About this RNA
The record is a 60-nucleotide RNA from Podargus strigoides, which matches "Selenocysteine insertion sequence 1" in Rfam. The incorporation of selenocysteine into a protein sequence is directed by an in-frame UGA codon (usually a stop codon) within the coding region of the mRNA. Selenoprotein mRNAs contain a conserved secondary structure in the 3' UTR that is required for the distinction of UGA stop from UGA selenocysteine. The selenocysteine insertion sequence (SECIS) is around 60 nt in length and adopts a hairpin structure which is sufficiently well-defined and conserved to act as a computational screen for selenoprotein genes. Rfam classes the family as a cis-regulatory element.
[Rfam]
RNA sequence: AUUGGGUCAUGAGAAUUAGAAAAUAAAGCCUGAUGCGUUUCUGAUUUGAAUCUCUCCUAU
Numbered sequence: 001a002u003u004g005g006g007u008c009a010u011g012a013g014a015a016u017u018a019g020a021a022a023a024u025a026a027a028g029c030c031u032g033a034u035g036c037g038u039u040u041c042u043g044a045u046u047u048g049a050a051u052c053u054c055u056c057c058u059a060u
Stems, first nucleotide, its partner, number of pairs: 001060002004057002014046009028036002